RNA sequence: AUAGCGGAAGCCGAAAAGCUAUAAUAGAGUAAACA
Numbered sequence: 001a002u003a004g005c006g007g008a009a010g011c012c013g014a015a016a017a018g019c020u021a022u023a024a025u026a027g028a029g030u031a032a033a034c035a
Stems, first nucleotide, its partner, number of pairs: 002021004010034001
Background:
The family of this 35-nucleotide RNA is "DUF805b RNA". Rfam classes the family as a cis-regulatory element. Rfam's curators put it in the seed alignment. The base pairs follow the family's consensus structure, which is taken from published work.